[Rfam]
RNA sequence: GGCAAUCACCGGGGGUGCUCCGACAGGGGCUGAGAUGCGCGAAGGCGCGAACCCUUUCACAGCUGAUCUGGGUAAUACCAGCGGAGCGAGGUUCAGCAUGUUCAUA
Numbered sequence: 001g002g003c004a005a006u007c008a009c010c011g012g013g014g015g016u017g018c019u020c021c022g023a024c025a026g027g028g029g030c031u032g033a034g035a036u037g038c039g040c041g042a043a044g045g046c047g048c049g050a051a052c053c054c055u056u057u058c059a060c061a062g063c064u065g066a067u068c069u070g071g072g073u074a075a076u077a078c079c080a081g082c083g084g085a086g087c088g089a090g091g092u093u094c095a096g097c098a099u100g101u102u103c104a105u106a
Base pairs, nucleotide, nucleotide: 008092009091010090011055012054013053014052016049017030018029019028020027021026037048038047039046040045062087063086064085068081069080070079071078
Rfam assigns this 106-nucleotide RNA sequence from Paracoccus homiensis to the family "TPP riboswitch aptamer (THI element)". The match comes from Rfam's covariance-model search (62 bits). The organism belongs to Paracoccus, within Bacteria.